A member of the RNA family "Small nucleolar RNA SNORA33" from Phyllostomus discolor, 129 nucleotides long.
Rfam's curators write: ACA33 is a member of the H/ACA class of snoRNA that guide the sites of modification of uridines to pseudouridines.
Gene Ontology terms of the family: RNA processing and nucleolus.
It is annotated as an H/ACA-box small nucleolar RNA.
NCBI's taxonomy places the organism under Eukaryota, Laurasiatheria, Phyllostomidae, Phyllostominae, Phyllostomus.
Rfam 15.1 lists 1,176 matches to the family in 522 species.
[Rfam]
RNA sequence: AAGCCAGCCACUGAGUCUCUUAACUGAAAGUGUUUCUGCAGAAAUUUAGAGAAAGUUGGCAAUAGUACUACCAUGUUACGAGCCUUAAAGACCUUGAAGCCAUUAAGGUCACUGAAAAUAGCUAAAAGA
Numbered sequence: 001a002a003g004c005c006a007g008c009c010a011c012u013g014a015g016u017c018u019c020u021u022a023a024c025u026g027a028a029a030g031u032g033u034u035u036c037u038g039c040a041g042a043a044a045u046u047u048a049g050a051g052a053a054a055g056u057u058g059g060c061a062a063u064a065g066u067a068c069u070a071c072c073a074u075g076u077u078a079c080g081a082g083c084c085u086u087a088a089a090g091a092c093c094u095u096g097a098a099g100c101c102a103u104u105a106a107g108g109u110c111a112c113u114g115a116a117a118a119u120a121g122c123u124a125a126a127a128g129a
Stems, first nucleotide, its partner, number of pairs: 003060005016042003019038001071121001073119001082109007090101001092099001